[Rfam]
RNA sequence: AUGCGUCUUCAGGGCGGGGCGAAAUUCCCCACCGGCGGUAGGGUGUCCAUCUGGAAAGAAGGGCGCCGAGCCCGCGAGCGCCUGCGAAAGCAGGGUCAGCAGAUCCGGUCAGAAUCCGGAGCCGACGGUUAAAGUCCGGAUGAGAGAAGACCAGG
Numbered sequence: 001a002u003g004c005g006u007c008u009u010c011a012g013g014g015c016g017g018g019g020c021g022a023a024a025u026u027c028c029c030c031a032c033c034g035g036c037g038g039u040a041g042g043g044u045g046u047c048c049a050u051c052u053g054g055a056a057a058g059a060a061g062g063g064c065g066c067c068g069a070g071c072c073c074g075c076g077a078g079c080g081c082c083u084g085c086g087a088a089a090g091c092a093g094g095g096u097c098a099g100c101a102g103a104u105c106c107g108g109u110c111a112g113a114a115u116c117c118g119g120a121g122c123c124g125a126c127g128g129u130u131a132a133a134g135u136c137c138g139g140a141u142g143a144g145a146g147a148a149g150a151c152c153a154g155g
Stems, first nucleotide, its partner, number of pairs: 005151006017029003031135002033124002035075004070122002078100002104120005126138003
The family of this 155-nucleotide RNA from Jeongeupia sacculi is "FMN riboswitch aptamer (RFN element)". The family's consensus secondary structure is taken from published work. The match comes from Rfam's covariance-model search (108 bits). From the family's description: The RFN element is a highly conserved domain that is found frequently in the 5'-untranslated regions of prokaryotic mRNAs that encode for flavin mononucleotide (FMN) biosynthesis and transport proteins.